Nucleotides: 099
Base pairs, nucleotide, nucleotide: 001099002098003097004096006095007094008093009092010091011090
Number, partner (000 for none) and nucleotide at each position: 001099u002098u003097c004096a005000u006095g007094g008093c009092a010091a011090g012000g013000a014000u015000g016000a017000u018000g019000a020000u021000u022000c023000a024000a025000u026000u027000a028000g029000a030000u031000g032000u033000g034000u035000g036000a037000a038000a039000g040000g041000a042000u043000u044000a045000g046000u047000c048000c049000u050000u051000c052000c053000u054000g055000a056000a057000c058000u059000u060000a061000a062000a063000u064000u065000u066000u067000u068000g069000a070000g071000g072000c073000a074000u075000u076000u077000a078000u079000u080000a081000u082000u083000u084000g085000u086000c087000u088000g089000a090011c091010u092009u093008g094007c095006c096004u097003g098002a099001a

This 99-nucleotide sequence from Cucurbita maxima belongs to the Rfam family "Small nucleolar RNA Z266".
Gene Ontology terms of the family: RNA processing and nucleolus.
The family's consensus secondary structure was predicted with PFOLD.
It scores 79 bits against the family's covariance model.